A member of the RNA family "mir-5928 microRNA precursor family" from Haemonchus placei, 75 nucleotides long. The base pairs follow the family's consensus structure, which was predicted with RNAalifold. Gene Ontology terms of the family: miRNA-mediated post-transcriptional gene silencing and RISC complex. Lineage of the source: Eukaryota > Metazoa > Chromadorea > Rhabditida > Haemonchus.
RNA sequence: GGCCCAAAUUUAAAGUAGAGUAGAUUGGAAGGAUAAUCUGACCCUGCUAAACUGGUCUACUUCGAGUUUGGGCUC
Numbered sequence: 001g002g003c004c005c006a007a008a009u010u011u012a013a014a015g016u017a018g019a020g021u022a023g024a025u026u027g028g029a030a031g032g033a034u035a036a037u038c039u040g041a042c043c044c045u046g047c048u049a050a051a052c053u054g055g056u057c058u059a060c061u062u063c064g065a066g067u068u069u070g071g072g073c074u075c
Stems, first nucleotide, its partner, number of pairs: 001074009011064001013062007021054003025050004030045001032043001034041001